[Rfam]
RNA sequence: GAUAGGCUGCGGCGUUGGUGACUGCCAAUAACGUUUUAUGAUCUAUGCUUGACUUAAUAAGGGAACUGAACCGAGAUCCUAGCAGCAGUAAACCGAGCCAGUACUCGGAAACGAAUGCGGGGACUUCAGUACCCACCUGGUAACCCCAGGUCAAAAGCUGAGGCAAGACGGCGUUGCGGUCUAUCU
Numbered sequence: 001g002a003u004a005g006g007c008u009g010c011g012g013c014g015u016u017g018g019u020g021a022c023u024g025c026c027a028a029u030a031a032c033g034u035u036u037u038a039u040g041a042u043c044u045a046u047g048c049u050u051g052a053c054u055u056a057a058u059a060a061g062g063g064a065a066c067u068g069a070a071c072c073g074a075g076a077u078c079c080u081a082g083c084a085g086c087a088g089u090a091a092a093c094c095g096a097g098c099c100a101g102u103a104c105u106c107g108g109a110a111a112c113g114a115a116u117g118c119g120g121g122g123a124c125u126u127c128a129g130u131a132c133c134c135a136c137c138u139g140g141u142a143a144c145c146c147c148a149g150g151u152c153a154a155a156a157g158c159u160g161a162g163g164c165a166a167g168a169c170g171g172c173g174u175u176g177c178g179g180u181c182u183a184u185c186u
Stems, first nucleotide, its partner, number of pairs: 002184014018169002035157003039153006061134003065130006077123004082118002088112002093108005